RNA: mir-2041 microRNA precursor family
RNA sequence: AACCCAGGGGUAUUUUCCUCUAGCGUUUCGAUCGGGAGUAACACGUUAGAGGAAAAUACCCCUGGGUU
Number, nucleotide and partner (000 for none) at each position: 001a068002a067003c066004c065005c064006a063007g062008g061009g060010g059011u058012a057013u056014u055015u054016u053017c052018c051019u050020c049021u048022a047023g046024c045025g044026u043027u000028u041029c000030g039031a000032u037033c000034g000035g000036g000037a032038g000039u030040a000041a028042c000043a026044c025045g024046u023047u022048a021049g020050a019051g018052g017053a016054a015055a014056a013057u012058a011059c010060c009061c008062c007063u006064g005065g004066g003067u002068u001